[Rfam]
RNA sequence: UCCAUCGUGAGGUGGAAUCUGAAGGAAGCAAAUGGCAAAACAUAGCUUUGACGAACAGAAAUCUGAUAGUAGGCAUAAUCAACUUGGGUAACCUAGCAACAGAUAGAAUAGCCCAAAGUCUCGAACGGAAGUGUGAUUAUGUAAAUCAGGCAGAGCUAUGGGAAAGGGUGACAU
Numbered sequence: 001u002c003c004a005u006c007g008u009g010a011g012g013u014g015g016a017a018u019c020u021g022a023a024g025g026a027a028g029c030a031a032a033u034g035g036c037a038a039a040a041c042a043u044a045g046c047u048u049u050g051a052c053g054a055a056c057a058g059a060a061a062u063c064u065g066a067u068a069g070u071a072g073g074c075a076u077a078a079u080c081a082a083c084u085u086g087g088g089u090a091a092c093c094u095a096g097c098a099a100c101a102g103a104u105a106g107a108a109u110a111g112c113c114c115a116a117a118g119u120c121u122c123g124a125a126c127g128g129a130a131g132u133g134u135g136a137u138u139a140u141g142u143a144a145a146u147c148a149g150g151c152a153g154a155g156c157u158a159u160g161g162g163a164a165a166g167g168g169u170g171a172c173a174u
Base pairs, nucleotide, nucleotide: 001016002015003014004013005012006011030174035169036168041160042159043158044157045156046155047154048153049152050151062150063149064148065147066146067145073142074141075140077138078137079136080135081134082132083131086114087113088112089111093106094105095104